[Rfam]
RNA: Small nucleolar RNA snoR60
RNA sequence: AUGCAGAUUCGAGUUUCGGAUUCCCCUUCAGGACAUCACAAUGGAUGAUGCAAAUUCGAGUUUCUGAUGCG
Numbered sequence: 001a002u003g004c005a006g007a008u009u010c011g012a013g014u015u016u017c018g019g020a021u022u023c024c025c026c027u028u029c030a031g032g033a034c035a036u037c038a039c040a041a042u043g044g045a046u047g048a049u050g051c052a053a054a055u056u057c058g059a060g061u062u063u064c065u066g067a068u069g070c071g
Stems, first nucleotide, its partner, number of pairs: 002071004